[Rfam]
RNA sequence: GAGUCUAAUAUGCCUGUGAGUGUUUGGGUGGAAAGCCCAAGUGCGUAAUGAAAGUGAAAGUUGAGAUCCCUGUCAUGGGGAGCAUUGAUGCCUGGACUAGAACUUUUAGGAUGGAUCUGUGGUAGAGCAUGUAUGUUGGGACCCAAAAGAUGGUGAACUAUGCCUGAAUAGGAUGAAGCCAGAGGAAACUCUGGUGGAGGCUCAUAGCGAUUCUGACAUGCAAAUCAAUCAUCAAAUUUAGGGGCGAAAGACUAAUCGAACCAUCUAGUAGCUGGUU
Numbered sequence: 001g002a003g004u005c006u007a008a009u010a011u012g013c014c015u016g017u018g019a020g021u022g023u024u025u026g027g028g029u030g031g032a033a034a035g036c037c038c039a040a041g042u043g044c045g046u047a048a049u050g051a052a053a054g055u056g057a058a059a060g061u062u063g064a065g066a067u068c069c070c071u072g073u074c075a076u077g078g079g080g081a082g083c084a085u086u087g088a089u090g091c092c093u094g095g096a097c098u099a100g101a102a103c104u105u106u107u108a109g110g111a112u113g114g115a116u117c118u119g120u121g122g123u124a125g126a127g128c129a130u131g132u133a134u135g136u137u138g139g140g141a142c143c144c145a146a147a148a149g150a151u152g153g154u155g156a157a158c159u160a161u162g163c164c165u166g167a168a169u170a171g172g173a174u175g176a177a178g179c180c181a182g183a184g185g186a187a188a189c190u191c192u193g194g195u196g197g198a199g200g201c202u203c204a205u206a207g208c209g210a211u212u213c214u215g216a217c218a219u220g221c222a223a224a225u226c227a228a229u230c231a232u233c234a235a236a237u238u239u240a241g242g243g244g245c246g247a248a249a250g251a252c253u254a255a256u257c258g259a260a261c262c263a264u265c266u267a268g269u270a271g272c273u274g275g276u277u
Stems, first nucleotide, its partner, number of pairs: 005139009015129003020044003025039005048055002060089005067081003091122002093119003097114002142275002149265006158241003167238002169235001171203002174200001178195007207232001209230002212228001215226002243253002
Rfam assigns this 277-nucleotide part of an RNA from Leucoagaricus sp. SymC.cos to the family "Eukaryotic large subunit ribosomal RNA". Taxonomically the source falls in Leucoagaricus (Eukaryota, Basidiomycota, Agaricomycotina, Agaricaceae). For this family Rfam cites "Crystal structure of the ribosome at 5.5 A resolution" (Yusupov et al., Science, 2001). Clan: LSU clan. Rfam links the family to the GO terms structural constituent of ribosome and ribosome.